[Rfam]
RNA sequence: GUGGCGUGCUCAGUGCAGGGGGCCUAGAGAAUGGCGGCUCAUCUGCUUACAACACACCCAACAGGAAUUUGAGGUCACUGUGACAAGGGGCACAAAAUGUGUGGCUUCCCUAUGAACAAAUGCCCUGUACAU
Numbered sequence: 001g002u003g004g005c006g007u008g009c010u011c012a013g014u015g016c017a018g019g020g021g022g023c024c025u026a027g028a029g030a031a032u033g034g035c036g037g038c039u040c041a042u043c044u045g046c047u048u049a050c051a052a053c054a055c056a057c058c059c060a061a062c063a064g065g066a067a068u069u070u071g072a073g074g075u076c077a078c079u080g081u082g083a084c085a086a087g088g089g090g091c092a093c094a095a096a097a098u099g100u101g102u103g104g105c106u107u108c109c110c111u112a113u114g115a116a117c118a119a120a121u122g123c124c125c126u127g128u129a130c131a132u
Base pairs, nucleotide, nucleotide: 003058004057006055007054008053013048015046016045017044018043019042021040022038023037024036073124074123075122079118080117081116084114085113087107088106089105091103092102093101094100